The record is a 65-nucleotide sequence from Mesocricetus auratus, which matches "mir-344 microRNA precursor family" in Rfam. On this family, see Chiang et al., Genes Dev 2010: "Mammalian microRNAs: experimental evaluation of novel and previously annotated genes". Rfam 15.1 lists 339 matches to the family in 9 species. It scores 57 bits against the family's covariance model. Rfam links the family to the GO terms RISC complex and miRNA-mediated post-transcriptional gene silencing.
[Rfam]
RNA sequence: UUUCCAGUCAGGUUCCUGGCUUAAAUCCAGCUCUUAGCUGGAGUUAGGCCAAGCUUGACUGUAAA
Numbered sequence: 001u002u003u004c005c006a007g008u009c010a011g012g013u014u015c016c017u018g019g020c021u022u023a024a025a026u027c028c029a030g031c032u033c034u035u036a037g038c039u040g041g042a043g044u045u046a047g048g049c050c051a052a053g054c055u056u057g058a059c060u061g062u063a064a065a
Stems, first nucleotide, its partner, number of pairs: 007059003011055004017051008027041005